[Rfam]
RNA sequence: GCAUGGAUGAAUUCUGCACUAGCUUUCCUCAGUAGCUGAUGCAGUCAGACACCAUGCCAGAGCAAAUUCUUCUUUCCACUGUGCCUGGUGUGCUUUUUUUAUGGAAUGGGCAUGCCCUUGGAAGGGGAGCACAU
Numbered sequence: 001g002c003a004u005g006g007a008u009g010a011a012u013u014c015u016g017c018a019c020u021a022g023c024u025u026u027c028c029u030c031a032g033u034a035g036c037u038g039a040u041g042c043a044g045u046c047a048g049a050c051a052c053c054a055u056g057c058c059a060g061a062g063c064a065a066a067u068u069c070u071u072c073u074u075u076c077c078a079c080u081g082u083g084c085c086u087g088g089u090g091u092g093c094u095u096u097u098u099u100u101a102u103g104g105a106a107u108g109g110g111c112a113u114g115c116c117c118u119u120g121g122a123a124g125g126g127g128a129g130c131a132c133a134u
Base pairs, nucleotide, nucleotide: 001057002056003055004054005053006052014044015043016042017041018040070129071128072127073125074124075123077121087116088115089114090113091112092111093110094109095108
Dot-bracket structure: ((((((.......(((((.....................))))).......))))))............((((((.(.........(((((((((............)))))))))....).))).))).....
Shown here is a 134-nucleotide RNA from Zosterops lateralis, a member of the family "Small nucleolar RNA SNORA15". Pairs were carried over by alignment from the consensus structure, which was predicted with RNAfold. For this family Rfam cites "RNomics: an experimental approach that identifies 201 candidates for novel, small, non-messenger RNAs in mouse" (Huttenhofer et al., EMBO J, 2001). By type it is an H/ACA-box small nucleolar RNA. ACA15 is a member of the H/ACA class of snoRNA that guide the sites of modification of uridines to pseudouridines.